The family of this 74-nucleotide sequence from Pseudomonas graminis is "Pseudomonas sRNA P9". By type it is a non-coding RNA gene. This small RNA (sRNA) was computationally identified in the genome of the opportunistic pathogen Pseudomonas aeruginosa and its expression verified by northern blot analysis. The base pairs follow the family's consensus structure, which was predicted with RNAalifold. The literature on the family includes a 2006 paper in Nucleic Acids Res by Livny et al., "Identification of 17 Pseudomonas aeruginosa sRNAs and prediction of sRNA-encoding genes in 10 diverse pathogens using the bioinformatic tool sRNAPredict2".
[Rfam]
RNA sequence: AUAAUUAUUACCGCCAUUCCAGUCAUGGCGGGUUAGCCGACGUUUGCACCCAACCCGCCCUAGAGGCGGGUUUU
Numbered sequence: 001a002u003a004a005u006u007a008u009u010a011c012c013g014c015c016a017u018u019c020c021a022g023u024c025a026u027g028g029c030g031g032g033u034u035a036g037c038c039g040a041c042g043u044u045u046g047c048a049c050c051c052a053a054c055c056c057g058c059c060c061u062a063g064a065g066g067c068g069g070g071u072u073u074u
Stems, first nucleotide, its partner, number of pairs: 011031007052072008